[Rfam]
RNA sequence: UUUCUACUCUAGCAGAGUGAAUGCUGGAGAGGAGGUGACCUCCUUUCCAGCAUUCACUCUGCUGGAGUGGAAA
Numbered sequence: 001u002u003u004c005u006a007c008u009c010u011a012g013c014a015g016a017g018u019g020a021a022u023g024c025u026g027g028a029g030a031g032g033a034g035g036u037g038a039c040c041u042c043c044u045u046u047c048c049a050g051c052a053u054u055c056a057c058u059c060u061g062c063u064g065g066a067g068u069g070g071a072a073a
Stems, first nucleotide, its partner, number of pairs: 001073003005069003010066001011063008020054008
Shown here is a 73-nucleotide RNA sequence from Ixodes scapularis, a member of the family "mir-16 microRNA precursor family". Pairs were carried over by alignment from the consensus structure, which was predicted with PFOLD. Clan: mir-15 clan. It scores 39 bits against the family's covariance model. The source organism's lineage runs through Eukaryota, Ecdysozoa, Chelicerata, Ixodidae and Ixodes. Rfam 15.1 lists 4,705 matches to the family in 758 species.